[Rfam]
RNA sequence: GCUAUCAUUGUUUUUGUGAUUGUUGCAGUUGGAUUAUAAGAAAAUUGCAUAGUCACAAAAGUGAUGGAUAGU
Numbered sequence: 001g002c003u004a005u006c007a008u009u010g011u012u013u014u015u016g017u018g019a020u021u022g023u024u025g026c027a028g029u030u031g032g033a034u035u036a037u038a039a040g041a042a043a044a045u046u047g048c049a050u051a052g053u054c055a056c057a058a059a060a061g062u063g064a065u066g067g068a069u070a071g072u
Stems, first nucleotide, its partner, number of pairs: 002071005008064013024049007

The family of this 72-nucleotide sequence from Trichonephila clavipes is "mir-153 microRNA precursor family". The family has 63 seed sequences and 1,565 matches in Rfam 15.1. The base pairs follow the family's consensus structure, which was predicted with RNAalifold. Lineage of the source: Eukaryota > Arachnida > Araneomorphae > Araneoidea > Trichonephila.